[Rfam]
RNA sequence: UGUUGUCAGUGAUGUCACUAUUCUACCUACAUUGUUUGAAUGUUCAGCGUGAGAACACUUUCAUAGCUGAGACAACC
Numbered sequence: 001u002g003u004u005g006u007c008a009g010u011g012a013u014g015u016c017a018c019u020a021u022u023c024u025a026c027c028u029a030c031a032u033u034g035u036u037u038g039a040a041u042g043u044u045c046a047g048c049g050u051g052a053g054a055a056c057a058c059u060u061u062c063a064u065a066g067c068u069g070a071g072a073c074a075a076c077c
Stems, first nucleotide, its partner, number of pairs: 002076001004074004
Rfam assigns this 77-nucleotide RNA sequence from Megalops atlanticus to the family "Small nucleolar RNA SNORD34".
It scores 44 bits against the family's covariance model.
It is annotated as a C/D-box small nucleolar RNA.
Gene Ontology terms of the family: nucleolus and RNA processing.
For this family Rfam cites "The high diversity of snoRNAs in plants: identification and comparative study of 120 snoRNA genes from Oryza sativa" (Chen et al., Nucleic Acids Res, 2003).
NCBI's taxonomy places the organism under Eukaryota, Craniata, Teleostomi, Megalopidae, Megalops.